[Rfam]
RNA: Ruegeria cis52 sRNA
RNA sequence: CGCAGCGCGUGCUUCAUGAUCACGGUCUUGUAGGGCAGGCCCUUGAGGAUCGCGGUCCGGAUGUAAUGGGUCGUCAUCACCUCGGCCAUCGAGGCCCGUGUCAUGCGCGCGACAUAGCCGAAAUCGUAAAGCACGAGGACCAUCGUCGGCAGGAUCAUCUCCUGGAUGUUCCAGCCGCGUGA
Numbered sequence: 001c002g003c004a005g006c007g008c009g010u011g012c013u014u015c016a017u018g019a020u021c022a023c024g025g026u027c028u029u030g031u032a033g034g035g036c037a038g039g040c041c042c043u044u045g046a047g048g049a050u051c052g053c054g055g056u057c058c059g060g061a062u063g064u065a066a067u068g069g070g071u072c073g074u075c076a077u078c079a080c081c082u083c084g085g086c087c088a089u090c091g092a093g094g095c096c097c098g099u100g101u102c103a104u105g106c107g108c109g110c111g112a113c114a115u116a117g118c119c120g121a122a123a124u125c126g127u128a129a130a131g132c133a134c135g136a137g138g139a140c141c142a143u144c145g146u147c148g149g150c151a152g153g154a155u156c157a158u159c160u161c162c163u164g165g166a167u168g169u170u171c172c173a174g175c176c177g178c179g180u181g182a
Stems, first nucleotide, its partner, number of pairs: 006137001008135005013129002015126001018124001020122001026121002036111001039108002044103003048099001052095001053073007080094005143182003147177004152172003